[Rfam]
RNA sequence: UCCGCCACUGUGCUUGUCUGUUAAAGUGACAAUGUACUGUCCAAAGGAGGCUGAUAAUAAUCCAACUUUAGGAGGUAGGGCUGCUCAAAUCCGUGGCUAACCCUGCGCCAAAAGGCCUGGAACAUGU
Numbered sequence: 001u002c003c004g005c006c007a008c009u010g011u012g013c014u015u016g017u018c019u020g021u022u023a024a025a026g027u028g029a030c031a032a033u034g035u036a037c038u039g040u041c042c043a044a045a046g047g048a049g050g051c052u053g054a055u056a057a058u059a060a061u062c063c064a065a066c067u068u069u070a071g072g073a074g075g076u077a078g079g080g081c082u083g084c085u086c087a088a089a090u091c092c093g094u095g096g097c098u099a100a101c102c103c104u105g106c107g108c109c110a111a112a113a114g115g116c117c118u119g120g121a122a123c124a125u126g127u
Stems, first nucleotide, its partner, number of pairs: 005047002009043002018034001021031001022029001062120003066115004071109002076105005085096002
Dot-bracket structure: ....((..((.......(..((......).)..).......))..))..............(((.((((.((...(((((....((........))....)))))..))..))))..))).......
Rfam assigns this 127-nucleotide sequence from Anabarilius grahami to the family "Small nucleolar RNA SNORA65". Rfam classes the family as an H/ACA-box small nucleolar RNA. NCBI's taxonomy places the organism under Eukaryota, Chordata, Osteoglossocephalai, Cypriniphysae, Anabarilius. The base pairs follow the family's consensus structure, which was predicted with RNAalifold. Rfam describes the family as follows. U65 belongs to the H/ACA class of snoRNAs which are thought to guide the sites of modification of uridines to pseudouridines. On this family, see Huttenhofer et al., EMBO J 2001: "RNomics: an experimental approach that identifies 201 candidates for novel, small, non-messenger RNAs in mouse". Gene Ontology terms of the family: RNA processing and nucleolus. A search with the family's covariance model found it, with a score of 75 bits.